The record is an 86-nucleotide RNA from Amphimedon queenslandica, which matches "Selenocysteine transfer RNA" in Rfam. It scores 67 bits against the family's covariance model.
RNA sequence: GCUCGGAUGAGCUUCACUGGUGUGGUGUGCAGGCUUCAGACCUGUAGGUGAUUAGCGUCACAGUGAUUCGAUUCCACCUUCCGAGC
Numbered sequence: 001g002c003u004c005g006g007a008u009g010a011g012c013u014u015c016a017c018u019g020g021u022g023u024g025g026u027g028u029g030c031a032g033g034c035u036u037c038a039g040a041c042c043u044g045u046a047g048g049u050g051a052u053u054a055g056c057g058u059c060a061c062a063g064u065g066a067u068u069c070g071a072u073u074c075c076a077c078c079u080u081c082c083g084a085g086c
Stems, first nucleotide, its partner, number of pairs: 001086007009078001012027001014025004028046006048061005063077003